[Rfam]
RNA sequence: GGGCAAUGAUGAGUAAUUGUGAUAGGUCUCGUUCGUCGUAAUGGCAUUCCAUGCCUUGCCGACCAUCCUGAUAUAUCACCACCCAUAAACCGAGCCC
Numbered sequence: 001g002g003g004c005a006a007u008g009a010u011g012a013g014u015a016a017u018u019g020u021g022a023u024a025g026g027u028c029u030c031g032u033u034c035g036u037c038g039u040a041a042u043g044g045c046a047u048u049c050c051a052u053g054c055c056u057u058g059c060c061g062a063c064c065a066u067c068c069u070g071a072u073a074u075a076u077c078a079c080c081a082c083c084c085a086u087a088a089a090c091c092g093a094g095c096c097c
Base pairs, nucleotide, nucleotide: 001097002096003095004094046057
Dot-bracket structure: ((((.........................................(..........)....................................))))

A member of the RNA family "Small nucleolar RNA Z43" from Sesamum indicum, 97 nucleotides long. The literature on the family includes a 2003 paper in Nucleic Acids Res by Chen et al., "The high diversity of snoRNAs in plants: identification and comparative study of 120 snoRNA genes from Oryza sativa". Lineage of the source: Eukaryota > eudicotyledons > Gunneridae > asterids > Sesamum. The family's RNA type in Rfam is C/D-box small nucleolar RNA. The match comes from Rfam's covariance-model search (92 bits).